Rfam assigns this 86-nucleotide RNA from Aphis gossypii to the family "mir-46/mir-47/mir-281 microRNA precursor family". It scores 78 bits against the family's covariance model. The family has 57 seed sequences and 307 matches in Rfam 15.1. The literature on the family includes a 2001 paper in Science by Lau et al., "An abundant class of tiny RNAs with probable regulatory roles in Caenorhabditis elegans". Its family is annotated with miRNA-mediated post-transcriptional gene silencing and RISC complex in the Gene Ontology. The organism belongs to Aphis, within Eukaryota.

RNA sequence: AGACUUAAACUAUCAAGAGAGCUAUCCGUCGACAGUAUAAUUUUUAACUACACUGUCAUGGAGUUGCUCUCUUUAUGGAUAAGUCU
Numbered sequence: 001a002g003a004c005u006u007a008a009a010c011u012a013u014c015a016a017g018a019g020a021g022c023u024a025u026c027c028g029u030c031g032a033c034a035g036u037a038u039a040a041u042u043u044u045u046a047a048c049u050a051c052a053c054u055g056u057c058a059u060g061g062a063g064u065u066g067c068u069c070u071c072u073u074u075a076u077g078g079a080u081a082a083g084u085c086u
Base pairs, nucleotide, nucleotide: 015073016072017071018070020068021067022066025062026061027060028059031057032056033055035053036052